[Rfam]
RNA: ZMP/ZTP riboswitch aptamer (pfl RNA motif)
RNA sequence: GGAACGGUGUGUAACUGGCGGAACGUGGGGAACCACGGGGGAGCACACGGGAAAUAUAGCCGUACGCCUGGGCGAAAGUA
Dot-bracket structure: ....(.((((((..(([[[[....((((....))))..))..)))))).)......(.(((...]]]]..))).).....